RNA sequence: CCAUCCGUUAUUCGCCGAAUGUCCAAUUAUAAUUUGGCGAUUGCCAAACAAAACGUAAAAUAUAGCAAGUCCUCCGUAAUGUUGAGCUCAUUAUUGCCAGAGCUUUUACAUUAUUAUACGUGCGAUCCUU
Dot-bracket structure: ......(....(((((((...............)))))))....)................................(((((..((((............))))...)))))..................